[Rfam]
RNA: Lysine riboswitch aptamer
Organism: Alkalihalobacillus alcalophilus
RNA sequence: AGUGAGGCUAGAGGAGCAAACUCCAUCAGUAAGUAUGUGUAGAAGGUUGAGCUUUGAUGAAGCAUACUAAAAGGGGAUUUUGCCGAAGCUAAAUAAGAAGCUCAUCUUUUAUUUAGCUGGGACUGUAUUUAAUAAAUGCAGGACUGUCAUAUAGCAUGGAGCUAUAUGGAGGGCUAUCUCACGC
Number, nucleotide and partner (000 for none) at each position: 001a000002g000003u000004g000005a000006g179007g178008c000009u176010a175011g174012a000013g000014g000015a000016g083017c082018a081019a080020a079021c000022u077023c076024c075025a000026u000027c000028a000029g000030u000031a000032a068033g067034u066035a065036u064037g063038u062039g000040u000041a000042g000043a000044a000045g000046g000047u000048u000049g000050a000051g000052c000053u000054u000055u000056g000057a000058u000059g000060a000061a000062g038063c037064a036065u035066a034067c033068u032069a000070a000071a000072a000073g000074g000075g024076g023077a022078u000079u020080u019081u018082g017083c016084c000085g000086a000087a118088g117089c116090u115091a114092a113093a112094u111095a110096a109097g108098a107099a000100g000101c000102u000103c000104a000105u000106c000107u098108u097109u096110u095111a094112u093113u092114u091115a090116g089117c088118u087119g145120g144121g000122a000123c141124u140125g139126u138127a137128u136129u135130u000131a000132a000133u000134a000135a129136a128137u127138g126139c125140a124141g123142g000143a000144c120145u119146g000147u169148c168149a167150u166151a165152u164153a163154g000155c000156a000157u000158g000159g000160a000161g000162c000163u153164a152165u151166a150167u149168g148169g147170a000171g000172g000173g000174c011175u010176a009177u000178c007179u006180c000181a000182c000183g000184c000